A member of the RNA family "U2 spliceosomal RNA" from Papilio xuthus, 165 nucleotides long.
Its Rfam clan is "U2 clan".
The family's RNA type in Rfam is spliceosomal small nuclear RNA.
Taxonomically the source falls in Papilio (Eukaryota, Dicondylia, Aparaglossata, Panorpida).

RNA sequence: AUCGCUUCUCGGCCUUUUGGCUAAGAUCAAAGUGUAGUAUCUGUUCUUUUCAGCUUAAUAUCUGAAAGUUCCCGCAUCGCGGGACCAGUAUAUUAAACUGAUUUUUGUAAAACGACGGGAUGUUAGGGGCUCGCUCCACUUCCGUCACGGGUCGGCCCACAUAAA
Numbered sequence: 001a002u003c004g005c006u007u008c009u010c011g012g013c014c015u016u017u018u019g020g021c022u023a024a025g026a027u028c029a030a031a032g033u034g035u036a037g038u039a040u041c042u043g044u045u046c047u048u049u050u051c052a053g054c055u056u057a058a059u060a061u062c063u064g065a066a067a068g069u070u071c072c073c074g075c076a077u078c079g080c081g082g083g084a085c086c087a088g089u090a091u092a093u094u095a096a097a098c099u100g101a102u103u104u105u106u107g108u109a110a111a112a113c114g115a116c117g118g119g120a121u122g123u124u125a126g127g128g129g130c131u132c133g134c135u136c137c138a139c140u141u142c143c144g145u146c147a148c149g150g151g152u153c154g155g156c157c158c159a160c161a162u163a164a165a
Stems, first nucleotide, its partner, number of pairs: 007026003011022004048067006070084006114146007126137004149158003